[Rfam]
Nucleotides: 228
Stems, first nucleotide, its partner, number of pairs: 001106007008042002011039002014034003019028003045098004054091004058085001060083002064077001157219006173206006182193004
Number, partner (000 for none) and nucleotide at each position: 001106c002105c003104g004103a005102c006101g007100u008042g009041g010000u011039c012038a013000u014034c015033c016032a017000g018000c019028g020027a021026g022000g023000u024000u025000g026021c027020u028019c029000u030000c031000c032016u033015g034014g035000c036000u037000c038012u039011g040000u041009c042008c043000u044000g045098g046097u047096g048095g049000c050000g051000u052000a053000u054091g055090g056089g057088a058085g059000c060083g061082u062000a063000g064077c065000c066000u067000u068000u069000u070000u071000u072000g073000g074000g075000c076000u077064g078000a079000g080000a081000c082061g083060u084000a085058c086000a087000u088057u089056c090055c091054c092000g093000u094000u095048c096047c097046a098045c099000a100007a101006c102005g103004u104003c105002g106001g107000a108000g109000a110000c111000u112000a113000a114000g115000c116000u117000c118000c119000g120000u121000c122000c123000c124000c125000g126000g127000c128000u129000g130000c131000u132000g133000g134000u135000c136000g137000g138000u139000c140000g141000g142000u143000g144000a145000g146000g147000g148000c149000g150000g151000g152000g153000c154000g155000u156000c157219c158218u159217g160216c161215a162214u163000a164000u165000u166000c167000c168000u169000a170000c171000a172000u173206c174205u175204u176203c177202c178201c179000a180000g181000a182193g183192u184191c185190c186000c187000u188000u189000g190185g191184g192183g193182c194000c195000g196000u197000u198000a199000c200000u201178g202177g203176g204175g205174g206173g207000c208000u209000a210000a211000a212000c213000c214162a215161u216160g217159c218158a219157g220000u221000g222000u223000a224000c225000a226000a227000a228000c